[Rfam]
RNA sequence: GUUCCCAGUGAUGUUGAAUUAUAUAUAUAUACCAUGCUAAUUCUGAUCAUGUUUUGUGACAGAAACCUCUUUCUCUUAUAUUUGCUGAGGGAACA
Numbered sequence: 001g002u003u004c005c006c007a008g009u010g011a012u013g014u015u016g017a018a019u020u021a022u023a024u025a026u027a028u029a030u031a032c033c034a035u036g037c038u039a040a041u042u043c044u045g046a047u048c049a050u051g052u053u054u055u056g057u058g059a060c061a062g063a064a065a066c067c068u069c070u071u072u073c074u075c076u077u078a079u080a081u082u083u084g085c086u087g088a089g090g091g092a093a094c095a
Stems, first nucleotide, its partner, number of pairs: 001094005
Dot-bracket structure: (((((....................................................................................))))).
Shown here is a 95-nucleotide sequence from Ricinus communis, a member of the family "Small nucleolar RNA snoR53Y". By type it is a C/D-box small nucleolar RNA. The base pairs follow the family's consensus structure, which was predicted with WAR.